The record is a 181-nucleotide sequence from Silurus meridionalis, which matches "Small nucleolar RNA SNORA81" in Rfam. The base pairs follow the family's consensus structure, which was predicted with WAR.
RNA sequence: CCUUCCAUCCAAAAGAACUGUGUUUAAAUUACAGACUCCAGGUCCUCCUGGUUUGUGUAAUCAUGCUAGCAGAGUGAAAGCAUGGAAGAAGACUAAUGUGCCCUGCUUCCGAAAAUGAAACCCGGUCGGACCUCUUUCUUAAUGUCCUGUGGCCUUUGUUUCAAGGUUCAGUGCAACAGUU
Numbered sequence: 001c002c003u004u005c006c007a008u009c010c011a012a013a014a015g016a017a018c019u020g021u022g023u024u025u026a027a028a029u030u031a032c033a034g035a036c037u038c039c040a041g042g043u044c045c046u047c048c049u050g051g052u053u054u055g056u057g058u059a060a061u062c063a064u065g066c067u068a069g070c071a072g073a074g075u076g077a078a079a080g081c082a083u084g085g086a087a088g089a090a091g092a093c094u095a096a097u098g099u100g101c102c103c104u105g106c107u108u109c110c111g112a113a114a115a116u117g118a119a120a121c122c123c124g125g126u127c128g129g130a131c132c133u134c135u136u137u138c139u140u141a142a143u144g145u146c147c148u149g150u151g152g153c154c155u156u157u158g159u160u161u162c163a164a165g166g167u168u169c170a171g172u173g174c175a176a177c178a179g180u181u
Stems, first nucleotide, its partner, number of pairs: 018074002021071004028064002031061001035054001038051005099175003103171003123152001125150001128147003

A search with the family's covariance model found it, with a score of 95 bits.